[Rfam]
RNA sequence: CGGUGAUGUCUUCUAACCUUUAUCAAUGAAGGCACUCGGUCAUGCUGUGGGUUGAAAAACCUUAGACGCCAGUCGUCGGAAGUGUGAUGUGAGGACAGGUUAGAUGCCUA
Numbered sequence: 001c002g003g004u005g006a007u008g009u010c011u012u013c014u015a016a017c018c019u020u021u022a023u024c025a026a027u028g029a030a031g032g033c034a035c036u037c038g039g040u041c042a043u044g045c046u047g048u049g050g051g052u053u054g055a056a057a058a059a060c061c062u063u064a065g066a067c068g069c070c071a072g073u074c075g076u077c078g079g080a081a082g083u084g085u086g087a088u089g090u091g092a093g094g095a096c097a098g099g100u101u102a103g104a105u106g107c108c109u110a
Stems, first nucleotide, its partner, number of pairs: 002018003007034007035093004039088008049062005065077004097109004
RNA: epsC RNA